[Rfam]
RNA sequence: UACGGUUGAAAUAAGAUUUAUCAUGAGAAGUCAGUCAGCAGAGGUCAUAGUAUCAAAGCAGUCAUGAAUGCUUUGAGAAGGAC
Number, nucleotide and partner (000 for none) at each position: 001u025002a024003c000004g022005g021006u020007u000008g018009a017010a000011a000012u000013a000014a000015g000016a000017u009018u008019u000020a006021u005022c004023a000024u002025g001026a000027g000028a000029a000030g000031u000032c000033a000034g000035u042036c041037a000038g000039c000040a000041g036042a035043g000044g083045u082046c081047a000048u000049a000050g000051u000052a000053u076054c075055a074056a073057a072058g071059c000060a000061g000062u000063c000064a000065u000066g000067a000068a000069u000070g000071c058072u057073u056074u055075g054076a053077g000078a000079a000080g000081g046082a045083c044

Shown here is an 83-nucleotide sequence from Clostridium aciditolerans, a member of the family "Group II catalytic intron D1-D4-1". A search with the family's covariance model found it, with a score of 41 bits. The pairing is the family consensus, mapped onto this sequence. The literature on the family includes a 2003 paper in Crit Rev Biochem Mol Biol by Lehmann and Schmidt, "Group II introns: structure and catalytic versatility of large natural ribozymes". Rfam 15.1 lists 2,508 matches to the family in 1,144 species. Rfam describes the family as follows. Group II introns are found in rRNA, tRNA and mRNA of organelles in fungi, plants and protists, and also in mRNA in bacteria.